[Rfam]
RNA sequence: AUUGCGCAUCCGGGGUGCCCGCGCUGUGCGGGCUGAGAUCACACCCGCUGAACCUGCCUGGGUAAUGCCAGCGAAGGGAGUGCCGAAUAUGCUAC
Numbered sequence: 001a002u003u004g005c006g007c008a009u010c011c012g013g014g015g016u017g018c019c020c021g022c023g024c025u026g027u028g029c030g031g032g033c034u035g036a037g038a039u040c041a042c043a044c045c046c047g048c049u050g051a052a053c054c055u056g057c058c059u060g061g062g063u064a065a066u067g068c069c070a071g072c073g074a075a076g077g078g079a080g081u082g083c084c085g086a087a088u089a090u091g092c093u094a095c
Stems, first nucleotide, its partner, number of pairs: 006083003010080001011047004016041001017033005053077003058071004